[Rfam]
RNA: Small nucleolar RNA SNORD127
Organism: Salvator merianae
RNA sequence: UGGCAACUGUGAUGACGCCUCUUGACUCUGUGAUGCACGUUGCUGCGAUAUGGAGACAACAGUCCCUCUAAACUGAUGUUGCCU
Numbered sequence: 001u002g003g004c005a006a007c008u009g010u011g012a013u014g015a016c017g018c019c020u021c022u023u024g025a026c027u028c029u030g031u032g033a034u035g036c037a038c039g040u041u042g043c044u045g046c047g048a049u050a051u052g053g054a055g056a057c058a059a060c061a062g063u064c065c066c067u068c069u070a071a072a073c074u075g076a077u078g079u080u081g082c083c084u
Stems, first nucleotide, its partner, number of pairs: 002083006